[Rfam]
RNA sequence: UAUUAUUGCUUCUAGGGUUCCGAUCGCUGAGAGCAAGUAGCUUUGCUACAUCGCCCUUGCGAUGACUGGUCCAAGAGAAGCACGCUUAAAACGAUAGCGACACGGCGGGACAAAAGCCCGGGAGGU
Numbered sequence: 001u002a003u004u005a006u007u008g009c010u011u012c013u014a015g016g017g018u019u020c021c022g023a024u025c026g027c028u029g030a031g032a033g034c035a036a037g038u039a040g041c042u043u044u045g046c047u048a049c050a051u052c053g054c055c056c057u058u059g060c061g062a063u064g065a066c067u068g069g070u071c072c073a074a075g076a077g078a079a080g081c082a083c084g085c086u087u088a089a090a091a092c093g094a095u096a097g098c099g100a101c102a103c104g105g106c107g108g109g110a111c112a113a114a115a116g117c118c119c120g121g122g123a124g125g126u
Stems, first nucleotide, its partner, number of pairs: 007082006015072002020069002022066001023063005083099004101121001103124001107119003
This 126-nucleotide RNA from Euhalothece natronophila belongs to the Rfam family "Guanidine-I riboswitch aptamer".
NCBI's taxonomy places the organism under Bacteria, Bacillati, Cyanophyceae, Halothece cluster, Euhalothece natronophila.
The match comes from Rfam's covariance-model search (79 bits).